A member of the RNA family "c-di-GMP-I riboswitch aptamer" from Pelovirga terrestris, 75 nucleotides long. The base pairs follow the family's consensus structure, which is taken from published work.
RNA sequence: AUCAUAAAAAGGCAAAACCAGAGUAAUCUGGCGACGCAAAGCUACCAGACCUAAAGGGUCAGUGGGGUUGUUAUG
Numbered sequence: 001a002u003c004a005u006a007a008a009a010a011g012g013c014a015a016a017a018c019c020a021g022a023g024u025a026a027u028c029u030g031g032c033g034a035c036g037c038a039a040a041g042c043u044a045c046c047a048g049a050c051c052u053a054a055a056g057g058g059u060c061a062g063u064g065g066g067g068u069u070g071u072u073a074u075g
Base pairs, nucleotide, nucleotide: 012037013036018031019030020029021028022027040069041068042067043066045065046064047063048060049059050058051057052056
Lineage of the source: Bacteria > Desulfuromonadia > Geobacterales > Geobacteraceae > Pelovirga.